[Rfam]
RNA sequence: CUUUAAAAUUUAAUAUUUACUCGUAUAAGUUUGAUAAUAGGGUUCAAACGUUUCUACAAACUACCUUAAAUAGUUACAGGCUACGGGUUCGGUAAAAUUUGAG
Numbered sequence: 001c002u003u004u005a006a007a008a009u010u011u012a013a014u015a016u017u018u019a020c021u022c023g024u025a026u027a028a029g030u031u032u033g034a035u036a037a038u039a040g041g042g043u044u045c046a047a048a049c050g051u052u053u054c055u056a057c058a059a060a061c062u063a064c065c066u067u068a069a070a071u072a073g074u075u076a077c078a079g080g081c082u083a084c085g086g087g088u089u090c091g092g093u094a095a096a097a098u099u100u101g102a103g
Stems, first nucleotide, its partner, number of pairs: 019088007029049006059075005

The record is a 103-nucleotide RNA from Fusibacter sp. 3D3, which matches "Purine riboswitch aptamer" in Rfam. The family's consensus secondary structure is taken from published work. The match comes from Rfam's covariance-model search (64 bits). A reference for the family is Mandal and Breaker (2004), "Adenine riboswitches and gene activation by disruption of a transcription terminator", Nat Struct Mol Biol.